Background:
Shown here is an 87-nucleotide RNA from Pseudonocardia sp. C8, a member of the family "TPP riboswitch aptamer (THI element)". From the family's description: Vitamin B(1) in its active form thiamin pyrophosphate (TPP) is an essential coenzyme that is synthesised by coupling of pyrimidine and thiazole moieties in bacteria. The previously detected thiamin-regulatory element, thi box was extended, resulting in a new, highly conserved RNA secondary structure, the THI element, which is widely distributed in eubacteria and also occurs in some archaea. Analysis of operon structures identified a large number of new candidate thiamin-regulated genes, mostly transporters, in various prokaryotic organisms.
[Rfam]
RNA sequence: CACGGGAGCCCGGCGAACGGGCUGAGAGGGGACCUCGGAAGCGGUCCCGACCGUCGAACCUGAUCCGGGUCAUGCCGGCGCAGGGAG
Numbered sequence: 001c002a003c004g005g006g007a008g009c010c011c012g013g014c015g016a017a018c019g020g021g022c023u024g025a026g027a028g029g030g031g032a033c034c035u036c037g038g039a040a041g042c043g044g045u046c047c048c049g050a051c052c053g054u055c056g057a058a059c060c061u062g063a064u065c066c067g068g069g070u071c072a073u074g075c076c077g078g079c080g081c082a083g084g085g086a087g
Stems, first nucleotide, its partner, number of pairs: 001087001002054004008022005029048005059084004065078004